[Rfam]
This 187-nucleotide RNA from Tissierella creatinophila belongs to the Rfam family "Lysine riboswitch aptamer".
RNA sequence: GGUUGAGGUAGAGGCGCAAAGUGUUAAAAGUAGUUAUUAUGGAAGCUGGAAACUUGUGAUAUAAUAAUGAAAGGAACCUUUGCCGAAGCUUUAAAUACCUAAAAUUUAAGGCUGGGACUAUAUUUAAUAGAUAUAGGACUGUCAUCAAUUUAUUUACUCGGUAGAUUGAUGUUGAGCUAUCUCAUUU
Numbered sequence: 001g002g003u004u005g006a007g008g009u010a011g012a013g014g015c016g017c018a019a020a021g022u023g024u025u026a027a028a029a030g031u032a033g034u035u036a037u038u039a040u041g042g043a044a045g046c047u048g049g050a051a052a053c054u055u056g057u058g059a060u061a062u063a064a065u066a067a068u069g070a071a072a073g074g075a076a077c078c079u080u081u082g083c084c085g086a087a088g089c090u091u092u093a094a095a096u097a098c099c100u101a102a103a104a105u106u107u108a109a110g111g112c113u114g115g116g117a118c119u120a121u122a123u124u125u126a127a128u129a130g131a132u133a134u135a136g137g138a139c140u141g142u143c144a145u146c147a148a149u150u151u152a153u154u155u156a157c158u159c160g161g162u163a164g165a166u167u168g169a170u171g172u173u174g175a176g177c178u179a180u181c182u183c184a185u186u187u
Stems, first nucleotide, its partner, number of pairs: 006182006016083006023077003033068008087113010114140002118136007143171010

Its family is annotated with lysine biosynthetic process in the Gene Ontology.